[Rfam]
RNA sequence: AUUGUUCACUCUCCCUUAAUAGGCUUCCAGCCUACCUGGACUCAAGCUGGAAGCCUUUAGGGGGGAGUGGACAA
Numbered sequence: 001a002u003u004g005u006u007c008a009c010u011c012u013c014c015c016u017u018a019a020u021a022g023g024c025u026u027c028c029a030g031c032c033u034a035c036c037u038g039g040a041c042u043c044a045a046g047c048u049g050g051a052a053g054c055c056u057u058u059a060g061g062g063g064g065g066a067g068u069g070g071a072c073a074a
Stems, first nucleotide, its partner, number of pairs: 006070010017059003021056007

The family of this 74-nucleotide RNA from Tripterygium wilfordii is "MIR473 microRNA precursor family". A reference for the family is Lu et al. (2005), "Novel and mechanical stress-responsive MicroRNAs in Populus trichocarpa that are absent from Arabidopsis", Plant Cell. It scores 54 bits against the family's covariance model.